A member of the RNA family "U12 minor spliceosomal RNA" from Lucilia cuprina, 249 nucleotides long. The organism belongs to Lucilia, within Eukaryota. The family has 62 seed sequences and 2,106 matches in Rfam 15.1. The literature on the family includes a 1997 paper in Trends Biochem Sci by Tarn and Steitz, "Pre-mRNA splicing: the discovery of a new spliceosome doubles the challenge".

RNA sequence: GUGCCUAAAUUAAAUAAGUAAGGAAAACCAUAUACAGUCUUGCUGAUCGCUUGACAGGUUUGCUUCUAGGCAAUAUGGGAUGAAGGGUCACAACCAAUAUAAGCCUUUUUCCCUUAUGGAGAAUUGCUUUGAGGUGUUUCCUGGAGUCUCAUAAGAAGCGUAAAUUUUUGUAUGGGUACAGGUCGUCCCUUUGAAUUCAUGAGUCCACUACUUUUCGGGCUGUAGAGUUUGGGUGAAGCGAUCUGCCCA
Numbered sequence: 001g002u003g004c005c006u007a008a009a010u011u012a013a014a015u016a017a018g019u020a021a022g023g024a025a026a027a028c029c030a031u032a033u034a035c036a037g038u039c040u041u042g043c044u045g046a047u048c049g050c051u052u053g054a055c056a057g058g059u060u061u062g063c064u065u066c067u068a069g070g071c072a073a074u075a076u077g078g079g080a081u082g083a084a085g086g087g088u089c090a091c092a093a094c095c096a097a098u099a100u101a102a103g104c105c106u107u108u109u110u111c112c113c114u115u116a117u118g119g120a121g122a123a124u125u126g127c128u129u130u131g132a133g134g135u136g137u138u139u140c141c142u143g144g145a146g147u148c149u150c151a152u153a154a155g156a157a158g159c160g161u162a163a164a165u166u167u168u169u170g171u172a173u174g175g176g177u178a179c180a181g182g183u184c185g186u187c188c189c190u191u192u193g194a195a196u197u198c199a200u201g202a203g204u205c206c207a208c209u210a211c212u213u214u215u216c217g218g219g220c221u222g223u224a225g226a227g228u229u230u231g232g233g234u235g236a237a238g239c240g241a242u243c244u245g246c247c248c249a
Stems, first nucleotide, its partner, number of pairs: 004023003008019001035057001037055003042050001058159004173249005180244007189233002193230005203220004
Pairs were carried over by alignment from the consensus structure.